A member of the RNA family "Glycine riboswitch aptamer" from Mahella australiensis, 76 nucleotides long. The organism belongs to Mahella australiensis, within Bacteria. Pairs were carried over by alignment from the consensus structure.
RNA sequence: GGACGAACCCCUGGAGAGUCUCGAAAGAGCGCCGAAGGUGAAUUAAUCUCUCAGGCAAAAGGACAGGGUUGAAAUU
Numbered sequence: 001g002g003a004c005g006a007a008c009c010c011c012u013g014g015a016g017a018g019u020c021u022c023g024a025a026a027g028a029g030c031g032c033c034g035a036a037g038g039u040g041a042a043u044u045a046a047u048c049u050c051u052c053a054g055g056c057a058a059a060a061g062g063a064c065a066g067g068g069u070u071g072a073a074a075u076u
Stems, first nucleotide, its partner, number of pairs: 007070001009068005020029003031056003034052002038050001040048001
Dot-bracket structure: ......(.(((((......(((....))).(((((..(.(.......).))).))).......))))).)......
Rfam links the family to the GO term glycine biosynthetic process.